[Rfam]
RNA sequence: UGAUUCAGACUAGGCAAGAUGUUGGCAUAGCUGAUGACUAGGCUCAGCUCUGUCACAUGCUGCCAUUUCUGGGUCAU
Numbered sequence: 001u002g003a004u005u006c007a008g009a010c011u012a013g014g015c016a017a018g019a020u021g022u023u024g025g026c027a028u029a030g031c032u033g034a035u036g037a038c039u040a041g042g043c044u045c046a047g048c049u050c051u052g053u054c055a056c057a058u059g060c061u062g063c064c065a066u067u068u069c070u071g072g073g074u075c076a077u
Base pairs, nucleotide, nucleotide: 005072006071007070008069009068013064014063015062016061019058020057021056023055024054025053026052027051029049030048031047
A member of the RNA family "mir-31 microRNA precursor family" from Magallana gigas, 77 nucleotides long. NCBI's taxonomy places the organism under Eukaryota, Opisthokonta, Bilateria, Ostreida, Magallana. Rfam links the family to the GO terms gene silencing by miRNA and RISC complex. For this family Rfam cites "Structure of pre-miR-31 reveals an active role in Dicer processing" (Ma et al., bioRxiv [Preprint], 2023).